RNA sequence: UGAGUCGGCCGGGCGGCCGCGUGGAUCAUCGCAGAUGAUCUUCGAGGAAAGUCCGGGCUCCUCAGGGCAGGGUGGUUGUCAACGGCAACCCGGCGCGAGCCGCGGGACAGUGCCACAGAGAACAGACCGCCGGGCGUUCAGCACGAACGUCCCGGUAAGGGUGAAACGGUGGUGUAAGAGACCACCAGCGUCCCGGGUGACCGGGACGGCUCGGUAAACCCCACCCGGAGCAAGGUCGAGAGGUCGGACCUUCGGGACCGACUGCGCAGGCGUUCGAGGGCGGCCCGUCCGAUGCCUGCGGGUGGACCGCUGGAGCGCGUCGGCAACGGCGCGCCGAGAUGGAUGGUCGCCGAACGGGACGUCGCAAGGCGCCCGGGAACAGAACCCGGCUUACAGGCCGGCUCAUCCC
Numbered sequence: 001u002g003a004g005u006c007g008g009c010c011g012g013g014c015g016g017c018c019g020c021g022u023g024g025a026u027c028a029u030c031g032c033a034g035a036u037g038a039u040c041u042u043c044g045a046g047g048a049a050a051g052u053c054c055g056g057g058c059u060c061c062u063c064a065g066g067g068c069a070g071g072g073u074g075g076u077u078g079u080c081a082a083c084g085g086c087a088a089c090c091c092g093g094c095g096c097g098a099g100c101c102g103c104g105g106g107a108c109a110g111u112g113c114c115a116c117a118g119a120g121a122a123c124a125g126a127c128c129g130c131c132g133g134g135c136g137u138u139c140a141g142c143a144c145g146a147a148c149g150u151c152c153c154g155g156u157a158a159g160g161g162u163g164a165a166a167c168g169g170u171g172g173u174g175u176a177a178g179a180g181a182c183c184a185c186c187a188g189c190g191u192c193c194c195g196g197g198u199g200a201c202c203g204g205g206a207c208g209g210c211u212c213g214g215u216a217a218a219c220c221c222c223a224c225c226c227g228g229a230g231c232a233a234g235g236u237c238g239a240g241a242g243g244u245c246g247g248a249c250c251u252u253c254g255g256g257a258c259c260g261a262c263u264g265c266g267c268a269g270g271c272g273u274u275c276g277a278g279g280g281c282g283g284c285c286c287g288u289c290c291g292a293u294g295c296c297u298g299c300g301g302g303u304g305g306a307c308c309g310c311u312g313g314a315g316c317g318c319g320u321c322g323g324c325a326a327c328g329g330c331g332c333g334c335c336g337a338g339a340u341g342g343a344u345g346g347u348c349g350c351c352g353a354a355c356g357g358g359a360c361g362u363c364g365c366a367a368g369g370c371g372c373c374c375g376g377g378a379a380c381a382g383a384a385c386c387c388g389g390c391u392u393a394c395a396g397g398c399c400g401g402c403u404c405a406u407c408c409c
Base pairs, nucleotide, nucleotide: 001405002404003403004402005401006400007399008398009397010396011394012351013350014349015348016347017346018345020044021043023041024040025039026038027037028036049392050391051390053389054388055387056386057385058230059229060228061227065286066285067284068283070226071225072224073223074222075089076088077087078086079085090104091102092101093100094099105221106220110219111218112215113214114213127160128159129156130155131154132153133152134150135149136148137147138146139145168186169185170184171183172182173181188210189208190207191206192205193204194203195202196201234308235307236306237305266299267298268297269296270295271294278290279289280288281287315334316333317332318331319330320329321328322327